A member of the RNA family "nrdJ RNA" from Streptomyces sp. NRRL F-5122, 85 nucleotides long. The family's RNA type in Rfam is small RNA. Lineage of the source: Bacteria > Actinomycetota > Actinomycetes > Streptomycetaceae > Streptomyces. The family's consensus secondary structure is taken from published work.

RNA sequence: ACCCGUCACGCGCGCCGUCUCGCGACGCGCGUGACAAGCAGACACAACACCGUGCCUUGGGAAGAAAAGGGCACGUCAGGGCGUU
Numbered sequence: 001a002c003c004c005g006u007c008a009c010g011c012g013c014g015c016c017g018u019c020u021c022g023c024g025a026c027g028c029g030c031g032u033g034a035c036a037a038g039c040a041g042a043c044a045c046a047a048c049a050c051c052g053u054g055c056c057u058u059g060g061g062a063a064g065a066a067a068a069g070g071g072c073a074c075g076u077c078a079g080g081g082c083g084u085u
Stems, first nucleotide, its partner, number of pairs: 005035010016024001052074007